[Rfam]
The family of this 113-nucleotide RNA from Metabacillus harenarius is "epsC RNA".
RNA sequence: AGGUGAUGCCUCCUUACCUUUAUCAAUGGAGGCACUCGGCUAUGCUGUGGGUUGUUCUUGACCUUAAACACGAUGUUGUUGGUGGUAUGGCGUGAGGGUGGGUUGGAUGCCCG
Numbered sequence: 001a002g003g004u005g006a007u008g009c010c011u012c013c014u015u016a017c018c019u020u021u022a023u024c025a026a027u028g029g030a031g032g033c034a035c036u037c038g039g040c041u042a043u044g045c046u047g048u049g050g051g052u053u054g055u056u057c058u059u060g061a062c063c064u065u066a067a068a069c070a071c072g073a074u075g076u077u078g079u080u081g082g083u084g085g086u087a088u089g090g091c092g093u094g095a096g097g098g099u100g101g102g103u104u105g106g107a108u109g110c111c112c113g
Stems, first nucleotide, its partner, number of pairs: 001019004007034007035096004039091008049064006067080004099113005

NCBI's taxonomy places the organism under Bacteria, Bacillati, Bacillota, Bacilli, Metabacillus. A search with the family's covariance model found it, with a score of 104 bits.